The family of this 122-nucleotide sequence from Steroidobacter agaridevorans is "SAM riboswitch aptamer (S box leader)". The SAM riboswitch is found upstream of a number of genes which code for proteins involved in methionine or cysteine biosynthesis in Gram-positive bacteria. Rfam links the family to the GO term regulation of gene expression. The match comes from Rfam's covariance-model search (84 bits).
[Rfam]
RNA sequence: UACUCAUCGAGACCGGCUGAGGGUCAGGCCCUUUGAAGCCGGGGCAACCGUCGAGACUAACCAUCUCGAAAAGGUGCCAACUCCUGCGGGGAGUCUCCAUUUGGAGCCCCGACAGAUGAGUU
Numbered sequence: 001u002a003c004u005c006a007u008c009g010a011g012a013c014c015g016g017c018u019g020a021g022g023g024u025c026a027g028g029c030c031c032u033u034u035g036a037a038g039c040c041g042g043g044g045c046a047a048c049c050g051u052c053g054a055g056a057c058u059a060a061c062c063a064u065c066u067c068g069a070a071a072a073g074g075u076g077c078c079a080a081c082u083c084c085u086g087c088g089g090g091g092a093g094u095c096u097c098c099a100u101u102u103g104g105a106g107c108c109c110c111g112a113c114a115g116a117u118g119a120g121u122u
Stems, first nucleotide, its partner, number of pairs: 002121007013042005021031003025086004043078004048074002051069006082114001087111005